Shown here is a 108-nucleotide RNA from Alistipes sp. CAG:514, a member of the family "Bacteroidales small SRP".
RNA sequence: GCAGUCAGGGAAAGUCGUACACGACCAGCUCCCUCUGAAUUCCCCCAGGGUCGGAAGGCAGCAAGGGUAGGAGGUCGUAGCGGUGCGAUGUACUAAGCUUUCCCUUUU
Numbered sequence: 001g002c003a004g005u006c007a008g009g010g011a012a013a014g015u016c017g018u019a020c021a022c023g024a025c026c027a028g029c030u031c032c033c034u035c036u037g038a039a040u041u042c043c044c045c046c047a048g049g050g051u052c053g054g055a056a057g058g059c060a061g062c063a064a065g066g067g068u069a070g071g072a073g074g075u076c077g078u079a080g081c082g083g084u085g086c087g088a089u090g091u092a093c094u095a096a097g098c099u100u101u102c103c104c105u106u107u108u
Base pairs, nucleotide, nucleotide: 008104009103010102011101012100013099014098015097017093018092019091020090021089022087023086024084025083

Overview: A reference for the family is Ryan et al. (2020), "A high-resolution transcriptome map identifies small RNA regulation of metabolism in the gut microbe Bacteroides thetaiotaomicron", Nat Commun. It scores 108 bits against the family's covariance model. Pairs were carried over by alignment from the consensus structure, which is taken from published work. Gene Ontology terms of the family: SRP-dependent cotranslational protein targeting to membrane, signal sequence recognition and signal recognition particle, plasma membrane targeting. Rfam classes the family as a non-coding RNA gene.